Rfam assigns this 81-nucleotide RNA sequence from Bradyrhizobium sp. LMTR 3 to the family "ZMP/ZTP riboswitch aptamer (pfl RNA motif)".

RNA sequence: CCGCGCUCGCGCGACUGGCGACUUUGGAUGGAGCACCAUCGGGAAGCGCGAGAGUAAUCGCCGCGCGCCUGGGCAUAAGCA
Number, nucleotide and partner (000 for none) at each position: 001c000002c000003g055004c054005g000006c052007u051008c050009g049010c048011g047012c046013g000014a000015c043016u042017g069018g068019c067020g066021a000022c000023u000024u000025u000026g000027g000028a039029u038030g037031g036032a000033g000034c000035a000036c031037c030038a029039u028040c000041g000042g016043g015044a000045a000046g012047c011048g010049c009050g008051a007052g006053a000054g004055u003056a000057a000058u000059c000060g074061c073062c072063g000064c000065g000066c020067g019068c018069c017070u000071g000072g062073g061074c060075a000076u000077a000078a000079g000080c000081a000
Its family is annotated with regulation of purine nucleotide biosynthetic process and one-carbon metabolic process in the Gene Ontology.